[Rfam]
RNA: Small nucleolar RNA SNORA75
RNA sequence: CACUUCUCAAUGAGCUCCUUCCUGCCAUCAGAUCCGUGGCAGCCUAUGGAUUCGCACGAGAAGAAUAUUAACUGAUCAGUACUGGCAGAGUCACAAUUGGGGCUCCAUCAGUUGUGAUAAGCCACUGCUGUUCUACAAAG
Numbered sequence: 001c002a003c004u005u006c007u008c009a010a011u012g013a014g015c016u017c018c019u020u021c022c023u024g025c026c027a028u029c030a031g032a033u034c035c036g037u038g039g040c041a042g043c044c045u046a047u048g049g050a051u052u053c054g055c056a057c058g059a060g061a062a063g064a065a066u067a068u069u070a071a072c073u074g075a076u077c078a079g080u081a082c083u084g085g086c087a088g089a090g091u092c093a094c095a096a097u098u099g100g101g102g103c104u105c106c107a108u109c110a111g112u113u114g115u116g117a118u119a120a121g122c123c124a125c126u127g128c129u130g131u132u133c134u135a136c137a138a139a140g
Base pairs, nucleotide, nucleotide: 003063004062005061006060007059008058014055015054016050017049018048022042023041024040025039026038027037028036074133075132077130078129094114095113096112097111098110099109